[Rfam]
RNA sequence: GAGACACCUUAUGGGGCAGGAUUUGCUUCAGUGGGGCUUUGGUGUUCACUGAAUCUGCCCUUUGAGUGUGUCUCU
Numbered sequence: 001g002a003g004a005c006a007c008c009u010u011a012u013g014g015g016g017c018a019g020g021a022u023u024u025g026c027u028u029c030a031g032u033g034g035g036g037c038u039u040u041g042g043u044g045u046u047c048a049c050u051g052a053a054u055c056u057g058c059c060c061u062u063u064g065a066g067u068g069u070g071u072c073u074c075u
Stems, first nucleotide, its partner, number of pairs: 001074007008066004013061006020055003028052008036043002
The record is a 75-nucleotide sequence from Myotis davidii, which matches "mir-9229 microRNA precursor family" in Rfam. Its family is annotated with miRNA-mediated post-transcriptional gene silencing and RISC complex in the Gene Ontology. The family has 7 seed sequences and 27,225 matches in Rfam 15.1.